Notes: A member of the RNA family "U5 spliceosomal RNA" from Liparis tanakae, 113 nucleotides long. Rfam's curators write: U5 RNA is a component of both types of known spliceosome. The precise function of this molecule is unknown, though it is known that the 5' loop is required for splice site selection and p220 binding, and that both the 3' stem-loop and the Sm site are important for Sm protein binding and cap methylation. The match comes from Rfam's covariance-model search (82 bits). Taxonomically the source falls in Liparis (Eukaryota, Metazoa, Osteoglossocephalai, Euacanthomorphacea).
Nucleotides: 113
Base pairs, nucleotide, nucleotide: 003078004077005076006075009068010067011066012065013064014063015062016061017060018059019058028054029053030052031051032050033049034048035047094113096112097111098110100109101108102107
Number, partner (000 for none) and nucleotide at each position: 001000a002000c003078a004077c005076u006075u007000u008000a009068g010067u011066u012065u013064u014063u015062c016061u017060u018059c019058a020000a021000a022000a023000c024000g025000c026000a027000a028054a029053a030052g031051u032050c033049u034048u035047u036000c037000g038000c039000c040000u041000u042000u043000u044000a045000c046000u047035a048034a049033a050032g051031a052030c053029u054028u055000c056000c057000g058019u059018g060017g061016a062015g063014a064013g065012a066011a067010a068009c069000a070000c071000c072000a073000a074000u075006g076005a077004g078003u079000u080000g081000a082000a083000c084000u085000u086000a087000u088000u089000u090000u091000u092000g093000u094113c095000a096112g097111g098110c099000u100109c101108u102107g103000c104000c105000a106000u107102u108101a109100g110098g111097c112096c113094g